[Rfam]
RNA sequence: GCGGCGGCGCGGCUCCGUUGGCCGGAGGAGCGUGCAGCGGACUCGCACCGCGCGCUGCUCCGUCGAACGGCGCCGACCACGUUGC
Numbered sequence: 001g002c003g004g005c006g007g008c009g010c011g012g013c014u015c016c017g018u019u020g021g022c023c024g025g026a027g028g029a030g031c032g033u034g035c036a037g038c039g040g041a042c043u044c045g046c047a048c049c050g051c052g053c054g055c056u057g058c059u060c061c062g063u064c065g066a067a068c069g070g071c072g073c074c075g076a077c078c079a080c081g082u083u084g085c
Base pairs, nucleotide, nucleotide: 001085002084003083004082005081006080012074014072015070016069017068018067019066021064023062024061025060027058029056030055031054032053033052034051035050037048039046
A member of the RNA family "MIR9657 microRNA precursor family" from Triticum aestivum, 85 nucleotides long.
The family's consensus secondary structure was predicted with RNAalifold.
It scores 57 bits against the family's covariance model.
Lineage of the source: Eukaryota > Tracheophyta > Mesangiospermae > Triticinae > Triticum.
Gene Ontology terms of the family: RISC complex and miRNA-mediated post-transcriptional gene silencing.